Rfam assigns this 158-nucleotide sequence from Trichonephila clavata to the family "U1 spliceosomal RNA".
[Rfam]
RNA sequence: UUACGCACUACUCUGGGAAUGCCUUGAUCACAAAGGAGGCUUAUCCGAGCAGAGGUCAUCUAUUGCACUUGGGGUGACUAACGCUCGCCAUUUCCGCAAAUAGCGGUUGCUUGGGCAGCACAAUUUUUGGGAAUGGGACUGCGUUCACGCUGUCCCGC
Dot-bracket structure: ............(((((((.(((((..........))))))..)))((((.(.(((.((((..........)))).)))..))))).(((....((.......))......))).)))...............(((((..(((....)))..))))).
Numbered sequence: 001u002u003a004c005g006c007a008c009u010a011c012u013c014u015g016g017g018a019a020u021g022c023c024u025u026g027a028u029c030a031c032a033a034a035g036g037a038g039g040c041u042u043a044u045c046c047g048a049g050c051a052g053a054g055g056u057c058a059u060c061u062a063u064u065g066c067a068c069u070u071g072g073g074g075u076g077a078c079u080a081a082c083g084c085u086c087g088c089c090a091u092u093u094c095c096g097c098a099a100a101u102a103g104c105g106g107u108u109g110c111u112u113g114g115g116c117a118g119c120a121c122a123a124u125u126u127u128u129g130g131g132a133a134u135g136g137g138a139c140u141g142c143g144u145u146c147a148c149g150c151u152g153u154c155c156c157g158c
Stems, first nucleotide, its partner, number of pairs: 013118003016046003019041001021040005047086004052082001054079003058075004088114003095105002134157005141150003
The source organism's lineage runs through Eukaryota, Panarthropoda, Chelicerata, Araneoidea and Trichonephila. Rfam classes the family as a spliceosomal small nuclear RNA. Its family is annotated with pre-mRNA 5'-splice site binding, U1 snRNP and mRNA 5'-splice site recognition in the Gene Ontology. Rfam 15.1 lists 40,184 matches to the family in 1,499 species. The match comes from Rfam's covariance-model search (78 bits).